The record is a 62-nucleotide RNA sequence from Eptatretus burgeri, which matches "Selenocysteine insertion sequence 1" in Rfam. It is annotated as a cis-regulatory element. On this family, see Walczak et al., RNA 1996: "A novel RNA structural motif in the selenocysteine insertion element of eukaryotic selenoprotein mRNAs". The base pairs follow the family's consensus structure, which is taken from published work. The source organism's lineage runs through Eukaryota, Metazoa, Craniata, Myxini and Eptatretus.

[Rfam]
RNA sequence: CUCACCGGAUGAUGGGAUUGGGGCAAAGCCUUCGGGACCCCCAAUCUUUGAUGAUAGGUGGG
Numbered sequence: 001c002u003c004a005c006c007g008g009a010u011g012a013u014g015g016g017a018u019u020g021g022g023g024c025a026a027a028g029c030c031u032u033c034g035g036g037a038c039c040c041c042c043a044a045u046c047u048u049u050g051a052u053g054a055u056a057g058g059u060g061g062g
Stems, first nucleotide, its partner, number of pairs: 001062005014048010029036002